[Rfam]
Rfam assigns this 88-nucleotide RNA sequence from Exobacillus caeni to the family "c-di-GMP-I riboswitch aptamer".
RNA sequence: ACUCGAUAAAGGCAAACCUCUGGAAACAAAGGGACGCAAAGCUAUAGGGGCUAAAAUUGCAUUUGUAUUACGCCAGCCAGCUACCGAA
Numbered sequence: 001a002c003u004c005g006a007u008a009a010a011g012g013c014a015a016a017c018c019u020c021u022g023g024a025a026a027c028a029a030a031g032g033g034a035c036g037c038a039a040a041g042c043u044a045u046a047g048g049g050g051c052u053a054a055a056a057u058u059g060c061a062u063u064u065g066u067a068u069u070a071c072g073c074c075a076g077c078c079a080g081c082u083a084c085c086g087a088a
Base pairs, nucleotide, nucleotide: 012037013036017032018031019030021028022027040082041081042080043079047078048077049074050073051072056068057067
A search with the family's covariance model found it, with a score of 76 bits.